[Rfam]
Annotation:
This 98-nucleotide RNA sequence from Erysipelotrichaceae bacterium OH741_COT-311 belongs to the Rfam family "Purine riboswitch aptamer". Rfam links the family to the GO term purine nucleobase biosynthetic process.
RNA sequence: GUAAUGUUUAUUACAUUUACUUGUAUAGGUGUCAAAUUUUGGCUGACAUGUUUCUACCCACUUGCCCAAAGUGGACUACAAGUAACCUUUUCCCCGUG
Numbered sequence: 001g002u003a004a005u006g007u008u009u010a011u012u013a014c015a016u017u018u019a020c021u022u023g024u025a026u027a028g029g030u031g032u033c034a035a036a037u038u039u040u041g042g043c044u045g046a047c048a049u050g051u052u053u054c055u056a057c058c059c060a061c062u063u064g065c066c067c068a069a070a071g072u073g074g075a076c077u078a079c080a081a082g083u084a085a086c087c088u089u090u091u092c093c094c095c096g097u098g
Base pairs, nucleotide, nucleotide: 018084019083020082021081022080023079024078025077029049030048031047032046033045034044058074059073060072061071062070063069